[Rfam]
RNA: ZMP/ZTP riboswitch aptamer (pfl RNA motif)
Organism: Streptomyces sp. NL15-2K
RNA sequence: GACCCGGGCCGUGACUGGCGCUGAGGUGGAGCACCACCGGGGAGCGGCCCGCACCGUGGAUGCCGUGCGCCUGGGCGAUUUCC
Number, nucleotide and partner (000 for none) at each position: 001g000002a000003c000004c000005c051006g050007g049008g048009c047010c046011g045012u044013g000014a000015c041016u040017g071018g070019c069020g068021c067022u000023g000024a000025g000026g037027u036028g035029g034030a000031g000032c000033a000034c029035c028036a027037c026038c000039g000040g016041g015042g000043a000044g012045c011046g010047g009048c008049c007050c006051g005052c000053a000054c000055c000056g000057u000058g000059g000060a000061u077062g076063c075064c074065g000066u000067g021068c020069g019070c018071c017072u000073g000074g064075g063076c062077g061078a000079u000080u000081u000082c000083c000